[Rfam]
RNA sequence: UGUGACAUCCAUCAAAGUAGUAGUUCCCCAUCCAGGAGCUACUUUACUAUAUUCCAAAUUC
Numbered sequence: 001u002g003u004g005a006c007a008u009c010c011a012u013c014a015a016a017g018u019a020g021u022a023g024u025u026c027c028c029c030a031u032c033c034a035g036g037a038g039c040u041a042c043u044u045u046a047c048u049a050u051a052u053u054c055c056a057a058a059u060u061c
Stems, first nucleotide, its partner, number of pairs: 017045001019043009
Plastid-psbN 5UTR RNA: a 61-nucleotide RNA sequence from Papaver somniferum.
The family's RNA type in Rfam is cis-regulatory element.
A reference for the family is Richter et al. (2023), "Retrograde signaling in plants: A critical review focusing on the GUN pathway and beyond", Plant Commun.
The match comes from Rfam's covariance-model search (75 bits).
Plastid psbN is a non-coding RNA (ncRNA) recognised in plastids.
Lineage of the source: Eukaryota > Viridiplantae > Streptophyta > Papaveroideae > Papaver.